[Rfam]
Nucleotides: 061
Stems, first nucleotide, its partner, number of pairs: 010061004016055006024048002031043005
Number, partner (000 for none) and nucleotide at each position: 001000c002000u003000g004000g005000g006000a007000a008000c009000a010061g011060c012059a013058c014000g015000g016055c017054c018053g019052c020051a021050a022000c023000u024048c025047u026000g027000a028000c029000u030000c031043g032042c033041c034040c035039g036000c037000g038000g039035u040034g041033g042032g043031c044000u045000u046000g047025g048024g049000a050021u051020u052019g053018c054017g055016g056000a057000u058013g059012u060011g061010c